[Rfam]
RNA sequence: AAAUUGUAAGUGAGAGUUGAAGGAAGCUGAACCAGUUGCACACUGCGAUAAUGUGGGCAGUAGGGUUUAGUUUCCUCCAACAUCUCAUCUACAAUUU
Numbered sequence: 001a002a003a004u005u006g007u008a009a010g011u012g013a014g015a016g017u018u019g020a021a022g023g024a025a026g027c028u029g030a031a032c033c034a035g036u037u038g039c040a041c042a043c044u045g046c047g048a049u050a051a052u053g054u055g056g057g058c059a060g061u062a063g064g065g066u067u068u069a070g071u072u073u074c075c076u077c078c079a080a081c082a083u084c085u086c087a088u089c090u091a092c093a094a095u096u097u
Base pairs, nucleotide, nucleotide: 004094005093006092007091008090011087012086013085014084016081017080018079019078021076023074024073025072026071027070028069029068030067032065033064
Shown here is a 97-nucleotide sequence from Papaver somniferum, a member of the family "MIR2275 microRNA precursor family". Its family is annotated with RISC complex and miRNA-mediated post-transcriptional gene silencing in the Gene Ontology. The source organism's lineage runs through Eukaryota, Magnoliopsida, Ranunculales, Papaveroideae and Papaver. The family has 13 seed sequences and 785 matches in Rfam 15.1.